[Rfam]
RNA: Archaeal large subunit ribosomal RNA, nucleotides 1993 to 2360
RNA sequence: CGGGUCACGCCAGGCUAGGGAACUCGGCAAAUUAGCCCUGUAACUUCGGGAUAAAGGGUGCCCGCGGUCUGGGUAAAACCCGGGACCGUGGGUCGCAGUGGCAAGGGGGACCUGACUGUUUAACAAAAACAUAGGUCCCCGCGAGCCCGUAAGGGUUUGUACGGGGGCUGAAUCCUGGCCACUGGCGGUACGUGAAACCCGGGUUCAACCGGGCUAAGCGCCGCUGAAGGCCGGGGGUAACUCUGACCCUCUUAAGGUAGCCAAAUGCCUUGCCGGGUAAGUUCCGGCGUGCAUGAAUGGAUCAACGAGGUCCCCACUGUCCCAGCCUGGUGCCCGGCGAACCCACCUCCAGGUGCAGAGUCCUGGGA
Number, nucleotide and partner (000 for none) at each position: 001c336002g335003g334004g333005u000006c000007a000008c000009g331010c330011c329012a328013g327014g326015c325016u324017a000018g322019g321020g320021a000022a000023c000024u000025c000026g000027g000028c000029a000030a000031a000032u000033u000034a000035g059036c058037c057038c056039u055040g000041u000042a000043a000044c049045u000046u000047c000048g000049g044050g000051a000052u000053a000054a000055a039056g038057g037058g036059u035060g093061c092062c091063c090064g089065c088066g087067g086068u085069c084070u083071g000072g000073g000074u000075a000076a000077a000078a000079c000080c000081c000082g000083g070084g069085a068086c067087c066088g065089u064090g063091g062092g061093u060094c098095g000096c000097a000098g094099u000100g000101g000102c000103a000104a000105g000106g315107g314108g313109g312110a311111c310112c309113u307114g306115a000116c000117u131118g130119u129120u000121u000122a000123a000124c000125a000126a000127a000128a000129a119130c118131a117132u000133a000134g169135g168136u167137c166138c165139c164140c163141g162142c159143g000144a000145g156146c155147c154148c153149g000150u000151a000152a000153g148154g147155g146156u145157u000158u000159g142160u000161a000162c141163g140164g139165g138166g137167g136168c135169u134170g000171a000172a302173u301174c300175c299176u000177g232178g231179c230180c000181a000182c229183u228184g225185g224186c223187g222188g221189u000190a000191c220192g219193u218194g000195a000196a000197a000198c213199c212200c211201g210202g209203g000204u000205u000206c000207a000208a000209c202210c201211g200212g199213g198214c000215u000216a000217a000218g193219c192220g191221c188222c187223g186224c185225u184226g000227a000228a183229g182230g179231c178232c177233g251234g250235g249236g248237g247238u246239a000240a000241c000242u000243c000244u000245g000246a238247c237248c236249c235250u234251c233252u256253u000254a000255a000256g252257g000258u000259a000260g000261c000262c000263a000264a000265a000266u000267g000268c000269c000270u000271u000272g288273c287274c286275g285276g284277g283278u000279a000280a000281g000282u000283u277284c276285c275286g274287g273288c272289g000290u000291g000292c000293a000294u000295g000296a000297a000298u000299g175300g174301a173302u172303c000304a000305a000306c114307g113308a000309g112310g111311u110312c109313c108314c107315c106316a000317c000318u000319g000320u020321c019322c018323c000324a016325g015326c014327c013328u012329g011330g010331u009332g000333c004334c003335c002336g001337g000338c000339g000340a000341a000342c000343c000344c000345a000346c000347c000348u000349c366350c365351a364352g363353g362354u000355g000356c000357a000358g000359a000360g000361u000362c353363c352364u351365g350366g349367g000368a000